[Rfam]
RNA sequence: GUGCAGCAGGAAGGGGGGCCGUUACACUGUCAGAGAGUGAGUAGCAGGUCUCACAGUGAACCGGUCUCUUUCCCUGCUGUGGC
Numbered sequence: 001g002u003g004c005a006g007c008a009g010g011a012a013g014g015g016g017g018g019c020c021g022u023u024a025c026a027c028u029g030u031c032a033g034a035g036a037g038u039g040a041g042u043a044g045c046a047g048g049u050c051u052c053a054c055a056g057u058g059a060a061c062c063g064g065u066c067u068c069u070u071u072c073c074c075u076g077c078u079g080u081g082g083c
Stems, first nucleotide, its partner, number of pairs: 006077005015068007025058006033052003

Rfam assigns this 83-nucleotide RNA sequence from Monodelphis domestica to the family "mir-128 microRNA precursor family". The family has 57 seed sequences and 1,337 matches in Rfam 15.1. Taxonomically the source falls in Monodelphis (Eukaryota, Metazoa, Bilateria, Mammalia). The base pairs follow the family's consensus structure, which was predicted with RNAalifold.